[Rfam]
Shown here is a 323-nucleotide sequence from Pardalotus punctatus, a member of the family "7SK RNA".
The family is grouped with related families in Rfam's "7SK clan".
Rfam's curators write: 7SK was discovered as an abundant small nuclear RNA in the mid-70s but a possible function has only recently been suggested. Two independent studies have found that 7SK RNA binds the CDK9/cyclin T complex (known as elongation factor P-TEFb). P-TEFb activates transcription by phosphorylating the C-terminal domain of RNA polymerase II. This process is negatively regulated by the 7SK RNP. The secondary structure of 7SK RNA shown here was proposed by Wasserman and Steitz on the basis of chemical modification and enzymatic cleavage experiments. This family contains a number of annotated pseudogenes and 7SK derived repeats.
Lineage of the source: Eukaryota > Teleostomi > Dinosauria > Telluraves > Pardalotus.

RNA sequence: GGAUGUGAAGGCAAUGUGGCUGUGCUAUGUGAUAUGCCACUGAUUGCAAGGGUCAAUUUGUUGGUCUGCUAGCUCAGGCAUGUGUCCCCUUUCUUCCUCAACGAUCCAUGUGUGCUCCACCCGAAGCUGUGUGCUCAGCUGGCAAGGAACAGCCUUCCCAUCAGAGGUGGUACUGUUCAUCAGCCAAGAGUGUGGGGUAGCUGUGCUCCCUGGCUGGAAGCUCUUAGUGAGCCCAAUGGCCACUUGCAGAAGAGUGUAGGGCAGCCAAGCAUUGAGUACUGAAGGCACAUUUGAAUGCAGCGGUCUGACAUUGGCUUUUUUUU
Number, nucleotide and partner (000 for none) at each position: 001g107002g106003a105004u000005g000006u100007g099008a098009a000010g096011g095012c000013a092014a091015u000016g000017u000018g089019g088020c000021u000022g000023u000024g086025c000026u084027a083028u082029g081030u080031g079032a000033u077034a000035u072036g000037c000038c068039a067040c000041u000042g066043a065044u064045u063046g061047c060048a059049a000050g000051g000052g000053u000054c000055a000056a000057u000058u000059u048060g047061u046062u000063g045064g044065u043066c042067u039068g038069c000070u000071a000072g035073c000074u000075c000076a000077g033078g000079c031080a030081u029082g028083u027084g026085u000086c024087c000088c019089c018090u000091u014092u013093c000094u000095u011096c010097c000098u008099c007100a006101a000102c000103g000104a000105u003106c002107c001108a000109u000110g000111u000112g000113u000114g000115c170116u169117c167118c166119a000120c164121c138122c000123g136124a135125a000126g134127c133128u000129g000130u000131g000132u000133g127134c126135u124136c123137a000138g121139c000140u160141g159142g000143c000144a000145a000146g157147g156148a155149a000150c000151a000152g000153c000154c000155u148156u147157c146158c000159c141160a140161u000162c000163a000164g120165a000166g118167g117168u000169g116170g115171u000172a000173c000174u000175g000176u000177u000178c000179a000180u000181c000182a000183g000184c000185c000186a000187a000188g000189a000190g000191u000192g000193u000194g000195g000196g000197g000198u000199a000200g270201c269202u268203g000204u000205g000206c264207u263208c000209c261210c260211u259212g000213g257214c256215u000216g000217g000218a000219a000220g000221c252222u251223c000224u249225u000226a000227g247228u246229g245230a244231g243232c000233c000234c000235a000236a000237u000238g000239g000240c000241c000242a000243c231244u230245u229246g228247c227248a000249g224250a000251a222252g221253a000254g000255u000256g214257u213258a000259g211260g210261g209262c000263a207264g206265c000266c000267a000268a202269g201270c200271a000272u000273u000274g000275a000276g000277u000278a000279c000280u000281g000282a000283a000284g000285g000286c000287a000288c000289a000290u000291u000292u000293g323294a322295a321296u000297g318298c000299a316300g315301c314302g312303g311304u310305c000306u000307g000308a000309c000310a304311u303312u302313g000314g301315c300316u299317u000318u297319u000320u000321u295322u294323u293
Pairs were carried over by alignment from the consensus structure, which is taken from published work. The family has 45 seed sequences and 49,373 matches in Rfam 15.1. A search with the family's covariance model found it, with a score of 142 bits.